Shown here is a 100-nucleotide RNA from Geomicrobium sp. JCM 19038, a member of the family "Purine riboswitch aptamer". Pairs were carried over by alignment from the consensus structure, which is taken from published work. A search with the family's covariance model found it, with a score of 70 bits. Lineage of the source: Bacteria > Bacillati > Bacillota > Bacilli > Geomicrobium.
RNA sequence: CAUGCUAGAAUUCAUCACUGUUGUAUAACCUCAAUAAUAUGGUUUGAGGGUCUCUACCAGGAACCGAUAAUUCCUGAUUACAAAAAUGUUACGCAUUUCA
Numbered sequence: 001c002a003u004g005c006u007a008g009a010a011u012u013c014a015u016c017a018c019u020g021u022u023g024u025a026u027a028a029c030c031u032c033a034a035u036a037a038u039a040u041g042g043u044u045u046g047a048g049g050g051u052c053u054c055u056a057c058c059a060g061g062a063a064c065c066g067a068u069a070a071u072u073c074c075u076g077a078u079u080a081c082a083a084a085a086a087u088g089u090u091a092c093g094c095a096u097u098u099c100a
Stems, first nucleotide, its partner, number of pairs: 019085001021083005029049006058076006